Rfam assigns this 108-nucleotide RNA sequence from Virgibacillus phasianinus to the family "SAM riboswitch aptamer (S box leader)". Taxonomically the source falls in Virgibacillus (Bacteria, Bacillati, Caryophanales, Bacillaceae). The base pairs follow the family's consensus structure, which is taken from published work. From the family's description: The SAM riboswitch is found upstream of a number of genes which code for proteins involved in methionine or cysteine biosynthesis in Gram-positive bacteria. It scores 87 bits against the family's covariance model.
Nucleotides: 108
Base pairs, nucleotide, nucleotide: 003106004105005104006103007102008101013041015040016039017038021031022030023029026081027080028079042074043073044072045071047070048069049066050065051064052063078100083097084096085095086094087093088092
Number, partner (000 for none) and nucleotide at each position: 001000u002000c003106c004105u005104u006103a007102u008101u009000a010000a011000g012000a013041g014000u015040g016039g017038u018000g019000g020000a021031g022030g023029g024000a025000a026081u027080g028079g029023c030022c031021c032000u033000a034000u035000g036000a037000a038017g039016c040015c041013c042074g043073g044072c045071a046000a047070c048069c049066c050065u051064u052063u053000g054000a055000a056000g057000a058000a059000a060000u061000u062000c063052a064051g065050g066049g067000a068000a069048g070047g071045u072044g073043c074042c075000a076000a077000u078100u079028c080027c081026a082000g083097c084096a085095g086094a087093a088092c089000a090000a091000u092088g093087u094086u095085c096084u097083g098000a099000c100078a101008g102007a103006u104005a105004a106003g107000a108000c